[Rfam]
RNA: Bacterial RNase P class A
RNA sequence: AGAGUCGGUCAGGCAAUCGCUCCUUGCAAGGCAAGGGGAGGAAAGUCCGGGCUCCAUAGGGCAGAGUGCCAGGUAACGCCUGGGAGAUGAAAAUCUACGGAAAGUGCCACAGAAAAUAUACCGCCUCCCGCCUGUGCAGGAGGUAAGGGUGAAAUGGUGCGGUAAGAGCGCACCGCGCGUCUGGCAACAGGCGUGGCAGGGAAAACCCCACUCGGAGCAAGACCAAAUAGGAAUCCAUCCGGCGUAAGCCGGCACAUGCGGCCCGCAUGGGAUUCGGGUAGGUCGCUUGAGGCUUGUGGUGACACAAGUCCCAGAUGAAUGAUUGUCCACGACAGAACCCGGCUUAUCGACCGACUUUUCUA
Numbered sequence: 001a002g003a004g005u006c007g008g009u010c011a012g013g014c015a016a017u018c019g020c021u022c023c024u025u026g027c028a029a030g031g032c033a034a035g036g037g038g039a040g041g042a043a044a045g046u047c048c049g050g051g052c053u054c055c056a057u058a059g060g061g062c063a064g065a066g067u068g069c070c071a072g073g074u075a076a077c078g079c080c081u082g083g084g085a086g087a088u089g090a091a092a093a094u095c096u097a098c099g100g101a102a103a104g105u106g107c108c109a110c111a112g113a114a115a116a117u118a119u120a121c122c123g124c125c126u127c128c129c130g131c132c133u134g135u136g137c138a139g140g141a142g143g144u145a146a147g148g149g150u151g152a153a154a155u156g157g158u159g160c161g162g163u164a165a166g167a168g169c170g171c172a173c174c175g176c177g178c179g180u181c182u183g184g185c186a187a188c189a190g191g192c193g194u195g196g197c198a199g200g201g202a203a204a205a206c207c208c209c210a211c212u213c214g215g216a217g218c219a220a221g222a223c224c225a226a227a228u229a230g231g232a233a234u235c236c237a238u239c240c241g242g243c244g245u246a247a248g249c250c251g252g253c254a255c256a257u258g259c260g261g262c263c264c265g266c267a268u269g270g271g272a273u274u275c276g277g278g279u280a281g282g283u284c285g286c287u288u289g290a291g292g293c294u295u296g297u298g299g300u301g302a303c304a305c306a307a308g309u310c311c312c313a314g315a316u317g318a319a320u321g322a323u324u325g326u327c328c329a330c331g332a333c334a335g336a337a338c339c340c341g342g343c344u345u346a347u348c349g350a351c352c353g354a355c356u357u358u359u360c361u362a
Base pairs, nucleotide, nucleotide: 001358002357003356004355005354006353007352008351009350010349011347012327013326014325015324016323017322018321020038021037022036023035024034025033026032027031043345044344045343047342048341049340050339051338052217053216054215055214059264060263061262062261064213065212066211067210068209069083070082071081072080073079084098085096086095087094088093099208100207104206105205107201108200121148122147123144124143125142126141127140128139130137131136156174157173158172159171160170161169175197176195177194178193179192180191181190182189183188221284222283223282224281231275232274233273234272235271236270255269256268257267258266259265291310292309293308294307295306296305297304298303